[Rfam]
RNA sequence: GUCAGCGACCCCCGGCUAAAGCCGGGAGCUUGUAAAGGCUCAUGCUGACCAGCCUAUGUCUGCUUAAGCAGACGCCGUUACGGGUGAAUGGCAACCAUAGGUUGCUUGAUAGGCACUCCGGGGUGACUGAACCAGCCCCGGACCCUGCGGUGAGUGGUUAAACAUGCUGAGGGUCUAAGCAAGUGCUGCUCACAAGAAACCGCCCGAUAACAUUGGCGAGGUUCACUUUAC
Numbered sequence: 001g002u003c004a005g006c007g008a009c010c011c012c013c014g015g016c017u018a019a020a021g022c023c024g025g026g027a028g029c030u031u032g033u034a035a036a037g038g039c040u041c042a043u044g045c046u047g048a049c050c051a052g053c054c055u056a057u058g059u060c061u062g063c064u065u066a067a068g069c070a071g072a073c074g075c076c077g078u079u080a081c082g083g084g085u086g087a088a089u090g091g092c093a094a095c096c097a098u099a100g101g102u103u104g105c106u107u108g109a110u111a112g113g114c115a116c117u118c119c120g121g122g123g124u125g126a127c128u129g130a131a132c133c134a135g136c137c138c139c140g141g142a143c144c145c146u147g148c149g150g151u152g153a154g155u156g157g158u159u160a161a162a163c164a165u166g167c168u169g170a171g172g173g174u175c176u177a178a179g180c181a182a183g184u185g186c187u188g189c190u191c192a193c194a195a196g197a198a199a200c201c202g203c204c205c206g207a208u209a210a211c212a213u214u215g216g217c218g219a220g221g222u223u224c225a226c227u228u229u230a231c
Stems, first nucleotide, its partner, number of pairs: 001049007010028001012025002015022002029038003052217003056213001057074007077211004082205005113148002117142008125227001128225006150193009162184002165181004

This 231-nucleotide RNA belongs to the Rfam family "HNH endonuclease-associated RNA and ORF (HEARO) RNA". The family's RNA type in Rfam is non-coding RNA gene. It is one of the family's seed sequences. On this family, see Weinberg et al., Nature 2009: "Exceptional structured noncoding RNAs revealed by bacterial metagenome analysis".